This 37-nucleotide sequence belongs to the Rfam family "DUF805b RNA". The family's consensus secondary structure is taken from published work. It is one of the family's seed sequences.
[Rfam]
RNA sequence: UAAGGGGAAUCUGAAAACCUUUUUAAUAGAGUAGGAA
Numbered sequence: 001u002a003a004g005g006g007g008a009a010u011c012u013g014a015a016a017a018c019c020u021u022u023u024u025a026a027u028a029g030a031g032u033a034g035g036a037a
Stems, first nucleotide, its partner, number of pairs: 002021004010036003